Source information
This 147-nucleotide sequence from Bacillus cereus belongs to the Rfam family "c-di-AMP riboswitch aptamer (ydaO/yuaA leader)". The organism belongs to Bacillus cereus, within Bacteria. Rfam's curators put it in the seed alignment.

RNA sequence: UUUUCUAAAUCGCUGAAACCGCAUGGUGCGGGGGACCCGUUCUUAUGGAUUAGUUCUUAAUCCAAUGGGGUGAAUCCUUGAAAAAGGUAGGGCUACUCAUAGGCCCGAAUCCGACAGCUAACCUCGUAAGCGUUAUAUUGAGAAGGA
Dot-bracket structure: ..........((((...(((....)))((((((....((((......................))))(((.....((((....))))..((((.........))))...))).........)))))).))))...............